[Rfam]
RNA sequence: UUGCUCACAACGCUCUUGAGUUAAUGUUAAACAAAUUAAACCUCGACCAUGCGUUGCCAUAAAGUUAAUAGCAUCAGCACUAAUAUGCUCUGAUGCCAUUAUUA
Dot-bracket structure: ..(.(.((((((.(........).))))......((....(...)...))..)).).).......(((((((.((((((......))..)))).))...)))))
Numbered sequence: 001u002u003g004c005u006c007a008c009a010a011c012g013c014u015c016u017u018g019a020g021u022u023a024a025u026g027u028u029a030a031a032c033a034a035a036u037u038a039a040a041c042c043u044c045g046a047c048c049a050u051g052c053g054u055u056g057c058c059a060u061a062a063a064g065u066u067a068a069u070a071g072c073a074u075c076a077g078c079a080c081u082a083a084u085a086u087g088c089u090c091u092g093a094u095g096c097c098a099u100u101a102u103u104a
Stems, first nucleotide, its partner, number of pairs: 003058001005056001007054002009028004014023001035050002041045001066104005071096002074093004078087002

Vibrio RNA AS9: a 104-nucleotide RNA from Pseudoalteromonas sp. NBT06-2. Rfam describes the family as follows. Identified by direct cloning an parallel sequencing experiments with 5S/tRNA depletion. Confirmed by Northern blot. A search with the family's covariance model found it, with a score of 80 bits. Taxonomically the source falls in Pseudoalteromonas (Bacteria, Gammaproteobacteria, Alteromonadales, Pseudoalteromonadaceae). The literature on the family includes a 2009 paper in Nucleic Acids Res by Liu et al., "Experimental discovery of sRNAs in Vibrio cholerae by direct cloning, 5S/tRNA depletion and parallel sequencing". By type it is an antisense RNA.